[Rfam]
RNA sequence: GGACUGUGACGAUUGUAUCGUGAAAGGUCUCGUUCGUCGUAACUGGCUUCGAUUUGGGGCCUUGCCGACCAUCCUGAUAUAUCACCACCCAUAUUCCGAGUCC
Numbered sequence: 001g002g003a004c005u006g007u008g009a010c011g012a013u014u015g016u017a018u019c020g021u022g023a024a025a026g027g028u029c030u031c032g033u034u035c036g037u038c039g040u041a042a043c044u045g046g047c048u049u050c051g052a053u054u055u056g057g058g059g060c061c062u063u064g065c066c067g068a069c070c071a072u073c074c075u076g077a078u079a080u081a082u083c084a085c086c087a088c089c090c091a092u093a094u095u096c097c098g099a100g101u102c103c
Stems, first nucleotide, its partner, number of pairs: 001103004050058001